[Rfam]
RNA: glmS glucosamine-6-phosphate activated ribozyme aptamer
Organism: Candidatus Kurthia intestinigallinarum
RNA sequence: AAAACAGUUAUAGCGCCAGUACUAAGGAAAUAAAGCCACACAGCCUUAGUAGACGAGGUGGAGGAGUAUCGAACAUUCGGCGGAUGCCUCCCGGUCGUAUUGCCCGAUCGAUGAUGACUUUUAAAACAAUGAAGUAAUUUGUUGGACAAAGAAGUUAUCAGGCAAAUUC
Numbered sequence: 001a002a003a004a005c006a007g008u009u010a011u012a013g014c015g016c017c018a019g020u021a022c023u024a025a026g027g028a029a030a031u032a033a034a035g036c037c038a039c040a041c042a043g044c045c046u047u048a049g050u051a052g053a054c055g056a057g058g059u060g061g062a063g064g065a066g067u068a069u070c071g072a073a074c075a076u077u078c079g080g081c082g083g084a085u086g087c088c089u090c091c092c093g094g095u096c097g098u099a100u101u102g103c104c105c106g107a108u109c110g111a112u113g114a115u116g117a118c119u120u121u122u123a124a125a126a127c128a129a130u131g132a133a134g135u136a137a138u139u140u141g142u143u144g145g146a147c148a149a150a151g152a153a154g155u156u157a158u159c160a161g162g163c164a165a166a167u168u169c
Base pairs, nucleotide, nucleotide: 020051021050022049023048024047025046026045027044060091061090062089063088064087069080070079071078072077092110093109094108095107096106097105113159114158115157116156117155118154119153127144128143129142130141131140132139133138